This 76-nucleotide RNA from Sinanaerobacter chloroacetimidivorans belongs to the Rfam family "S10-Clostridia ribosomal protein leader". NCBI's taxonomy places the organism under Bacteria, Bacillati, Clostridia, Peptostreptococcales, Sinanaerobacter. By type it is a cis-regulatory leader. The literature on the family includes a 2020 paper in BMC Microbiol by Eckert and Weinberg, "Discovery of 20 novel ribosomal leader candidates in bacteria and archaea".
[Rfam]
RNA sequence: AAAAGGCGAUGAAGCAGGAAGUUGCUGAGCUAUCAGGUAAUUUCUGCAGAGAAUUGUCCGUUCCAGAAACGGGCGA
Numbered sequence: 001a002a003a004a005g006g007c008g009a010u011g012a013a014g015c016a017g018g019a020a021g022u023u024g025c026u027g028a029g030c031u032a033u034c035a036g037g038u039a040a041u042u043u044c045u046g047c048a049g050a051g052a053a054u055u056g057u058c059c060g061u062u063c064c065a066g067a068a069a070c071g072g073g074c075g076a
Base pairs, nucleotide, nucleotide: 014047015046016045018044019043020042021041025036026035027034028033057076058075062073063072064071
A search with the family's covariance model found it, with a score of 36 bits.